RNA sequence: UUGGCAUCAUGAGGAAAAAAAAAUAGAUUGUCUGAUCUACUAGAUGAAAAAUUCCUCCUACUCAUUCUGA
Numbered sequence: 001u002u003g004g005c006a007u008c009a010u011g012a013g014g015a016a017a018a019a020a021a022a023a024u025a026g027a028u029u030g031u032c033u034g035a036u037c038u039a040c041u042a043g044a045u046g047a048a049a050a051a052u053u054c055c056u057c058c059u060a061c062u063c064a065u066u067c068u069g070a
Base pairs, nucleotide, nucleotide: 006065007064009062028049029048032043
A member of the RNA family "Small nucleolar RNA Z105" from Panicum hallii, 70 nucleotides long. Taxonomically the source falls in Panicum hallii (Eukaryota, Streptophytina, Magnoliopsida, Petrosaviidae). It is annotated as a C/D-box small nucleolar RNA. Gene Ontology terms of the family: nucleolus and RNA processing. The base pairs follow the family's consensus structure, which was predicted with CMfinder. The family has 11 seed sequences and 621 matches in Rfam 15.1. A search with the family's covariance model found it, with a score of 54 bits.